The family of this 175-nucleotide RNA sequence from Loigolactobacillus coryniformis is "Group II catalytic intron D1-D4-3". Taxonomically the source falls in Loigolactobacillus coryniformis subsp. coryniformis (Bacteria, Bacillota, Lactobacillaceae, Loigolactobacillus coryniformis). From the family's description: Group II introns are found in rRNA, tRNA and mRNA of organelles in fungi, plants and protists, and also in mRNA in bacteria. The literature on the family includes a 2001 paper in Trends Genet by Bonen and Vogel, "The ins and outs of group II introns". A search with the family's covariance model found it, with a score of 124 bits. The pairing is the family consensus, mapped onto this sequence.
RNA sequence: UUUAUCGUGAGGUGAAGACUGAAGGAAGCCUGAUGAGCAAAGUACUGCACCGAUGAACAAGAAGCAGCUAUAAGGCCGGAAGUAACUGGAUAAGUUGGCCAAACACACUGAAGUCCGAUACUACCCGAAGUUACGACAGUAAAGCUGACGGUGACAUGGUACGAAAGUUGACGUU
Numbered sequence: 001u002u003u004a005u006c007g008u009g010a011g012g013u014g015a016a017g018a019c020u021g022a023a024g025g026a027a028g029c030c031u032g033a034u035g036a037g038c039a040a041a042g043u044a045c046u047g048c049a050c051c052g053a054u055g056a057a058c059a060a061g062a063a064g065c066a067g068c069u070a071u072a073a074g075g076c077c078g079g080a081a082g083u084a085a086c087u088g089g090a091u092a093a094g095u096u097g098g099c100c101a102a103a104c105a106c107a108c109u110g111a112a113g114u115c116c117g118a119u120a121c122u123a124c125c126c127g128a129a130g131u132u133a134c135g136a137c138a139g140u141a142a143a144g145c146u147g148a149c150g151g152u153g154a155c156a157u158g159g160u161a162c163g164a165a166a167g168u169u170g171a172c173g174u175u
Stems, first nucleotide, its partner, number of pairs: 001016006028175001030173001037168002042162006048153005065147005075140002082134005088116004094109001096107002